A member of the RNA family "Ascomycota telomerase RNA" from Verticillium longisporum, 375 nucleotides of a longer RNA. Lineage of the source: Eukaryota > Fungi > sordariomyceta > Sordariomycetes > Verticillium. A search with the family's covariance model found it, with a score of 348 bits.
RNA sequence: AAACAUACAGAAAGAACUUUGCACGACCACAUCUGAUGGUUUCUCCUGCCCUCUGAAGCCGCCGAUCGUCAUGCAACAUUGUCGAAAUGACAGUCUUGGUUUAGUUGUGGAUGCUGCAUACGCUUCUCGACGCUCGCGUCUGGGCAAGUAGCGAUUGAGAGGUGGGCGACGUCAGACCGGGACCCAUCUUGAGUUGGUGUCAAAGUUCCGCGCUUGUCCGGCCUCGUGGCGGCUGCCUCGGAUGUCCUAUUCUGCCCAAGCGAGAGCUCGAGUCAAUUUCCUUGGACCCCGUUGUGGGUGGACAGGCCUAAUUGGAGGGCAGUCCAGGUUGUCGUCGCUCCAGGAAUGGCGAGACGGCAACCCCCUCGAUGCAGG
Numbered sequence: 001a002a003a004c005a006u007a008c009a010g011a012a013a014g015a016a017c018u019u020u021g022c023a024c025g026a027c028c029a030c031a032u033c034u035g036a037u038g039g040u041u042u043c044u045c046c047u048g049c050c051c052u053c054u055g056a057a058g059c060c061g062c063c064g065a066u067c068g069u070c071a072u073g074c075a076a077c078a079u080u081g082u083c084g085a086a087a088u089g090a091c092a093g094u095c096u097u098g099g100u101u102u103a104g105u106u107g108u109g110g111a112u113g114c115u116g117c118a119u120a121c122g123c124u125u126c127u128c129g130a131c132g133c134u135c136g137c138g139u140c141u142g143g144g145c146a147a148g149u150a151g152c153g154a155u156u157g158a159g160a161g162g163u164g165g166g167c168g169a170c171g172u173c174a175g176a177c178c179g180g181g182a183c184c185c186a187u188c189u190u191g192a193g194u195u196g197g198u199g200u201c202a203a204a205g206u207u208c209c210g211c212g213c214u215u216g217u218c219c220g221g222c223c224u225c226g227u228g229g230c231g232g233c234u235g236c237c238u239c240g241g242a243u244g245u246c247c248u249a250u251u252c253u254g255c256c257c258a259a260g261c262g263a264g265a266g267c268u269c270g271a272g273u274c275a276a277u278u279u280c281c282u283u284g285g286a287c288c289c290c291g292u293u294g295u296g297g298g299u300g301g302a303c304a305g306g307c308c309u310a311a312u313u314g315g316a317g318g319g320c321a322g323u324c325c326a327g328g329u330u331g332u333c334g335u336c337g338c339u340c341c342a343g344g345a346a347u348g349g350c351g352a353g354a355c356g357g358c359a360a361c362c363c364c365c366u367c368g369a370u371g372c373a374g375g
Stems, first nucleotide, its partner, number of pairs: 181201003184197003203215004

Rfam classes the family as a non-coding RNA gene.